RNA sequence: AUUUUUGGAUAAUCGCAUGUCGCUUUUUUCUGUCGGCAUGAGGAAAGUCCAUGCUAGCACUGGCUGUGAUGCCAGUAGUGUUUGUGCUAGGUGAAACAAUAAGCCUAGGGAUGUCUAUUUGACAUUACGGCGGACGAUGAGGCUAAGUCCUUGGAUAUGCCUCUAGUCCUGAAAGUGCCACAGUGACGGAGCCUUUGAGGAAACUCAAGGGGUGGAACGCGGUAAACCCCUCAAGCUAGCAACCCAAACUUUGGUCGGGGCACGAGAUGGCUGGAAUGCGAACGGACCAUCUUGACUGCGCAAGCAGUAGACAGAUGAUUAUCGAAGGGGGUAGGACCUAGUACCUCUGGAACAAAACAUGGCUUAUAGAA
Dot-bracket structure: ...(((((((((((.((((((.............))))))....[[[.[[[[[(((((((((((......)))))).....(((.(((((((..........))))))(((((((.....)))))).)((.((((....((((...(((....)))..))))...)))).....(((((............((((((((....)))))))).........)))..))))).))))))))...(((...........)))...(((((((..................)))))))(((((....)))))........)))))))...(((((((........))))))).........]]]]]]]].).)))
Numbered sequence: 001a002u003u004u005u006u007g008g009a010u011a012a013u014c015g016c017a018u019g020u021c022g023c024u025u026u027u028u029u030c031u032g033u034c035g036g037c038a039u040g041a042g043g044a045a046a047g048u049c050c051a052u053g054c055u056a057g058c059a060c061u062g063g064c065u066g067u068g069a070u071g072c073c074a075g076u077a078g079u080g081u082u083u084g085u086g087c088u089a090g091g092u093g094a095a096a097c098a099a100u101a102a103g104c105c106u107a108g109g110g111a112u113g114u115c116u117a118u119u120u121g122a123c124a125u126u127a128c129g130g131c132g133g134a135c136g137a138u139g140a141g142g143c144u145a146a147g148u149c150c151u152u153g154g155a156u157a158u159g160c161c162u163c164u165a166g167u168c169c170u171g172a173a174a175g176u177g178c179c180a181c182a183g184u185g186a187c188g189g190a191g192c193c194u195u196u197g198a199g200g201a202a203a204c205u206c207a208a209g210g211g212g213u214g215g216a217a218c219g220c221g222g223u224a225a226a227c228c229c230c231u232c233a234a235g236c237u238a239g240c241a242a243c244c245c246a247a248a249c250u251u252u253g254g255u256c257g258g259g260g261c262a263c264g265a266g267a268u269g270g271c272u273g274g275a276a277u278g279c280g281a282a283c284g285g286a287c288c289a290u291c292u293u294g295a296c297u298g299c300g301c302a303a304g305c306a307g308u309a310g311a312c313a314g315a316u317g318a319u320u321a322u323c324g325a326a327g328g329g330g331g332u333a334g335g336a337c338c339u340a341g342u343a344c345c346u347c348u349g350g351a352a353c354a355a356a357a358c359a360u361g362g363c364u365u366a367u368a369g370a371a
Stems, first nucleotide, its partner, number of pairs: 004371003007367001008323007016040006045365003049362005054239005059076006082234003086230001087108006109128001110126006129229002132169004140162004147156003175227002177223003192211008243259003263294007295308005327348007
Background
A member of the RNA family "Bacterial RNase P class B" from Streptococcus downei, 371 nucleotides long. NCBI's taxonomy places the organism under Bacteria, Bacilli, Lactobacillales, Streptococcaceae, Streptococcus. Rfam's curators write: Ribonuclease P (RNase P) is a ubiquitous endoribonuclease, found in archaea, bacteria and eukarya as well as chloroplasts and mitochondria. Its best characterised activity is the generation of mature 5'-ends of tRNAs by cleaving the 5'-leader elements of precursor-tRNAs. Cellular RNase Ps are ribonucleoproteins. Pairs were carried over by alignment from the consensus structure, which is taken from published work. The family's RNA type in Rfam is ribozyme.